Shown here is a 139-nucleotide RNA from Klebsiella pneumoniae, a member of the family "Molybdenum/Tungsten riboswitch aptamer (Moco RNA motif)". Taxonomically the source falls in Klebsiella pneumoniae subsp. pneumoniae (Bacteria, Gammaproteobacteria, Klebsiella, Klebsiella pneumoniae complex). Rfam's curators put it in the seed alignment. Pairs were carried over by alignment from the consensus structure, which is taken from published work. On this family, see Regulski et al., Mol Microbiol 2008: "in molybdenum cofactor and tungsten cofactor metabolism".
RNA sequence: AUAACCUGUUAACACUCUAGCCUCUUCGCCUGUGUCAAAAGAUAUGGCGAUUUGGCCGCGACGCCGCCGGUUGUCGCCAGGGCGUGGAAAGAAAUGACCGCGUCUCCCGUAUUUGGAAAGGUGUAUAUGGCCUCACAGC
Numbered sequence: 001a002u003a004a005c006c007u008g009u010u011a012a013c014a015c016u017c018u019a020g021c022c023u024c025u026u027c028g029c030c031u032g033u034g035u036c037a038a039a040a041g042a043u044a045u046g047g048c049g050a051u052u053u054g055g056c057c058g059c060g061a062c063g064c065c066g067c068c069g070g071u072u073g074u075c076g077c078c079a080g081g082g083c084g085u086g087g088a089a090a091g092a093a094a095u096g097a098c099c100g101c102g103u104c105u106c107c108c109g110u111a112u113u114u115g116g117a118a119a120g121g122u123g124u125a126u127a128u129g130g131c132c133u134c135a136c137a138g139c
Stems, first nucleotide, its partner, number of pairs: 003133001006130001012124004017120001020056003026050005034043003058077005080105008090095001106116002